Small nucleolar RNA SNORA13: a 134-nucleotide RNA from Glaucidium brasilianum.
The family is grouped with related families in Rfam's "SNORA13 clan".
The family's RNA type in Rfam is H/ACA-box small nucleolar RNA.
Pairs were carried over by alignment from the consensus structure, which was predicted with CMfinder.
Gene Ontology terms of the family: nucleolus and RNA processing.
RNA sequence: UGCCUUUGUGUUGCCCAUUCAUUUCUAUCCAGAAUGAAUGUGGUGUCAAAAAAGGCAAACAGAAAUUCUUGCUCAGACUGCUUCUUAAGGAGGUGGUUAUUUACCUUUCUCCUCUCUGUUCUGCAAGGACAAAA
Numbered sequence: 001u002g003c004c005u006u007u008g009u010g011u012u013g014c015c016c017a018u019u020c021a022u023u024u025c026u027a028u029c030c031a032g033a034a035u036g037a038a039u040g041u042g043g044u045g046u047c048a049a050a051a052a053a054g055g056c057a058a059a060c061a062g063a064a065a066u067u068c069u070u071g072c073u074c075a076g077a078c079u080g081c082u083u084c085u086u087a088a089g090g091a092g093g094u095g096g097u098u099a100u101u102u103a104c105c106u107u108u109c110u111c112c113u114c115u116c117u118g119u120u121c122u123g124c125a126a127g128g129a130c131a132a133a134a
Stems, first nucleotide, its partner, number of pairs: 002056006009048002012045004016040008068127004074123004086118002089115002092111001095105002